A member of the RNA family "Glycine riboswitch aptamer" from Clostridium ljungdahlii, 90 nucleotides long. Gene Ontology term of the family: glycine biosynthetic process. Pairs were carried over by alignment from the consensus structure. The match comes from Rfam's covariance-model search (61 bits).
RNA sequence: AGACGAACCUCUGGAGAGACUCUUAUGAGCACCGAAGGGGAAAGCCAAAGUUGGGUGAAACUCUCAGGUACAAGGGACAGAGGAUUUUAU
Numbered sequence: 001a002g003a004c005g006a007a008c009c010u011c012u013g014g015a016g017a018g019a020c021u022c023u024u025a026u027g028a029g030c031a032c033c034g035a036a037g038g039g040g041a042a043a044g045c046c047a048a049a050g051u052u053g054g055g056u057g058a059a060a061c062u063c064u065c066a067g068g069u070a071c072a073a074g075g076g077a078c079a080g081a082g083g084a085u086u087u088u089a090u
Base pairs, nucleotide, nucleotide: 006085008083009082010081011080012079013078020029021028022027031069032068033067034065035064038063039062040061044056045055